[Rfam]
The record is a 137-nucleotide sequence from Virgisporangium aurantiacum, which matches "c-di-AMP riboswitch aptamer (ydaO/yuaA leader)" in Rfam.
Pairs were carried over by alignment from the consensus structure.
This family represents a conserved RNA structure found upstream of the ydaO and yuaA genes in Bacillus subtilis and related genes in other bacteria.
RNA sequence: UGGUGGCUGCCGCCUAAUCGCUUCCGAGCGAGCCGGGGACCCACGCACCUUGGGGUGAAUCCGCGAAAGCGGUAGGGGCACCACUGUUCCGUCCCGAACCCGUCAGCUAACCCGGUCGGCGGCCGACGGAAGGAACA
Numbered sequence: 001u002g003g004u005g006g007c008u009g010c011c012g013c014c015u016a017a018u019c020g021c022u023u024c025c026g027a028g029c030g031a032g033c034c035g036g037g038g039a040c041c042c043a044c045g046c047a048c049c050u051u052g053g054g055g056u057g058a059a060u061c062c063g064c065g066a067a068a069g070c071g072g073u074a075g076g077g078g079c080a081c082c083a084c085u086g087u088u089c090c091g092u093c094c095c096g097a098a099c100c101c102g103u104c105a106g107c108u109a110a111c112c113c114g115g116u117c118g119g120c121g122g123c124c125g126a127c128g129g130a131a132g133g134a135a136c137a
Stems, first nucleotide, its partner, number of pairs: 011121004018031003032116006042052002053101003061072004075095004